[Rfam]
RNA: Pseudomonas sRNA P34
RNA sequence: CCGCCCAAGGCGCCGCCGAUGGCCGCGCGGGUGUUGUCGCCUGCGAAGGCGGUACCACCGACCAGACUCAGGGACAACAGGAGUAUCGAGGAAUACUUCAUAGAGAGUUUCUCUCUGUGGGGAUGACGGCUGCGAUGCUGGGGUUGGCCCAAACCGCUGACAAGCGUCAGCCGACGAUUGGUAGAACAAACUCGAAAUAUUCCAAGUGCUUGUUUUUUAUGGGGAACUUUCUUCGGCGGAGGCGGUCUUAAACCGAAUGCGAAACGCGAUUUCAGGGUCGAAAUCGGUAUUUUUGCUGGCGGGAUGCUGGCCAUUCUAACGCCGACGAGCGGCCUGCCUUCAAGGCCUUUCAUCGACUUUUUCCUUAAGACGCCGCCUCCUGUUGCAGGAGGCGGCGUU
Numbered sequence: 001c002c003g004c005c006c007a008a009g010g011c012g013c014c015g016c017c018g019a020u021g022g023c024c025g026c027g028c029g030g031g032u033g034u035u036g037u038c039g040c041c042u043g044c045g046a047a048g049g050c051g052g053u054a055c056c057a058c059c060g061a062c063c064a065g066a067c068u069c070a071g072g073g074a075c076a077a078c079a080g081g082a083g084u085a086u087c088g089a090g091g092a093a094u095a096c097u098u099c100a101u102a103g104a105g106a107g108u109u110u111c112u113c114u115c116u117g118u119g120g121g122g123a124u125g126a127c128g129g130c131u132g133c134g135a136u137g138c139u140g141g142g143g144u145u146g147g148c149c150c151a152a153a154c155c156g157c158u159g160a161c162a163a164g165c166g167u168c169a170g171c172c173g174a175c176g177a178u179u180g181g182u183a184g185a186a187c188a189a190a191c192u193c194g195a196a197a198u199a200u201u202c203c204a205a206g207u208g209c210u211u212g213u214u215u216u217u218u219a220u221g222g223g224g225a226a227c228u229u230u231c232u233u234c235g236g237c238g239g240a241g242g243c244g245g246u247c248u249u250a251a252a253c254c255g256a257a258u259g260c261g262a263a264a265c266g267c268g269a270u271u272u273c274a275g276g277g278u279c280g281a282a283a284u285c286g287g288u289a290u291u292u293u294u295g296c297u298g299g300c301g302g303g304a305u306g307c308u309g310g311c312c313a314u315u316c317u318a319a320c321g322c323c324g325a326c327g328a329g330c331g332g333c334c335u336g337c338c339u340u341c342a343a344g345g346c347c348u349u350u351c352a353u354c355g356a357c358u359u360u361u362u363c364c365u366u367a368a369g370a371c372g373c374c375g376c377c378u379c380c381u382g383u384u385g386c387a388g389g390a391g392g393c394g395g396c397g398u399u
Base pairs, nucleotide, nucleotide: 004073005072006071009056010055012053013052014051015050016049017048026045027044028043029042030041031040032039033038081363082362083361086356087355088354089353096122097121098120099119101117102116103115104114105113106112107111123249125247126246127245129243130242131241133239136238137237138236139235140234143161144160147157148156162211163210164209165208166207167206170182171181172180173179223232224231253302254301259296260295264288265287267286268285269284270283271282272281273280306330307329308328331347332346333345369399370398371397372396373395374394375393376392377391378390379389380388381387